Shown here is a 56-nucleotide RNA from Coregonus sp. 'balchen', a member of the family "UnaL2 LINE 3' element". Rfam describes the family as follows. The eel long interspersed element (LINE) UnaL2 and its partner short interspersed element (SINE) share a conserved 3' tail containing a stem-loop that is critical for their retrotransposition. The source organism's lineage runs through Eukaryota, Teleostomi, Actinopteri, Protacanthopterygii and Coregonus. For this family Rfam cites "Solution structure of an RNA stem-loop derived from the 3' conserved region of eel LINE UnaL2" (Baba et al., RNA, 2004).

RNA sequence: AUGAAGUCGCUUUGACUAAGUCGCUUUGGAUAAAAGCGUCUGCUAAAUGGCAUUUU
Dot-bracket structure: ............((..((...((((((.....))))))..))).)...........
Numbered sequence: 001a002u003g004a005a006g007u008c009g010c011u012u013u014g015a016c017u018a019a020g021u022c023g024c025u026u027u028g029g030a031u032a033a034a035a036g037c038g039u040c041u042g043c044u045a046a047a048u049g050g051c052a053u054u055u056u
Stems, first nucleotide, its partner, number of pairs: 013045001014043001017042002022038006